[Rfam]
Record summary
The family of this 140-nucleotide RNA from Bacillus solimangrovi is "Group II catalytic intron D1-D4-4". A search with the family's covariance model found it, with a score of 50 bits. Lineage of the source: Bacteria > Bacillota > Bacilli > Bacillaceae > Bacillus. From the family's description: Group II introns are found in rRNA, tRNA and mRNA of organelles in fungi, plants and protists, and also in mRNA in bacteria.
RNA sequence: UAGUUGGUAAAAGAUCAAUCUAAGACUGUGCUCAAACGCUCAGUAGCUGACGAGCAACGGGUAGAAAAAUCCUAAGAUUGAAGCCAUGUAACAAAGUACAUCAUUCAUGAGUGCAAGCCAAUGAAUAGGUUGUAACAUAA
Numbered sequence: 001u002a003g004u005u006g007g008u009a010a011a012a013g014a015u016c017a018a019u020c021u022a023a024g025a026c027u028g029u030g031c032u033c034a035a036a037c038g039c040u041c042a043g044u045a046g047c048u049g050a051c052g053a054g055c056a057a058c059g060g061g062u063a064g065a066a067a068a069a070u071c072c073u074a075a076g077a078u079u080g081a082a083g084c085c086a087u088g089u090a091a092c093a094a095a096g097u098a099c100a101u102c103a104u105u106c107a108u109g110a111g112u113g114c115a116a117g118c119c120a121a122u123g124a125a126u127a128g129g130u131u132g133u134a135a136c137a138u139a140a
Base pairs, nucleotide, nucleotide: 020043021042023040024039050089051088052087054085055080056079057078064071065070096114097113098112099111101109117133118132